[Rfam]
About this RNA: The record is a 121-nucleotide sequence from Geotalea uraniireducens, which matches "Molybdenum/Tungsten riboswitch aptamer (Moco RNA motif)" in Rfam. The family's consensus secondary structure is taken from published work. Rfam links the family to the GO terms regulation of gene expression, tungstate binding and molybdenum ion binding. The literature on the family includes a 2007 paper in Nucleic Acids Res by Weinberg et al., "Identification of 22 candidate structured RNAs in bacteria using the CMfinder comparative genomics pipeline". The match comes from Rfam's covariance-model search (57 bits).
RNA sequence: AAAUUGUCGGCUCUCCGAGCCGCCGUACCCACCAGGGCAACCCUCUCACGGUGCGCGGCCAACGGGUGCUGCCGGAAACGGCUGCGCCUUCCUUUUGAAAAGGAGAACACCCUCCGUCAGA
Number, nucleotide and partner (000 for none) at each position: 001a000002a000003a000004u000005u000006g112007u000008c000009g000010g000011c000012u106013c105014u104015c103016c102017g000018a000019g059020c058021c057022g056023c055024c000025g054026u053027a052028c051029c050030c000031a000032c000033c000034a046035g045036g044037g000038c000039a000040a000041c000042c000043c000044u036045c035046u034047c000048a000049c000050g029051g028052u027053g026054c025055g023056c022057g021058g020059c019060c000061a000062a000063c000064g089065g088066g087067u086068g085069c084070u000071g082072c081073c080074g079075g000076a000077a000078a000079c074080g073081g072082c071083u000084g069085c068086g067087c066088c065089u064090u098091c097092c000093u000094u000095u000096u000097g091098a090099a000100a000101a000102g016103g015104a014105g013106a012107a000108c000109a000110c000111c000112c006113u000114c000115c000116g000117u000118c000119a000120g000121a000